[Rfam]
The record is a 79-nucleotide sequence from Chlamydotis macqueenii, which matches "Small nucleolar RNA SNORD87" in Rfam. The base pairs follow the family's consensus structure. Its family is annotated with nucleolus and RNA processing in the Gene Ontology. Rfam 15.1 lists 539 matches to the family in 430 species. NCBI's taxonomy places the organism under Eukaryota, Teleostomi, Dinosauria, Otidimorphae, Chlamydotis.
RNA sequence: GCUGGCACAGUGAUGAUGACUCUUUGCCGUUUACCCAACUGAAUUUUGUGAUGAGCAAUAUUGGAUCUGAUGUGCCAGC
Numbered sequence: 001g002c003u004g005g006c007a008c009a010g011u012g013a014u015g016a017u018g019a020c021u022c023u024u025u026g027c028c029g030u031u032u033a034c035c036c037a038a039c040u041g042a043a044u045u046u047u048g049u050g051a052u053g054a055g056c057a058a059u060a061u062u063g064g065a066u067c068u069g070a071u072g073u074g075c076c077a078g079c
Base pairs, nucleotide, nucleotide: 001079002078003077004076005075006074007073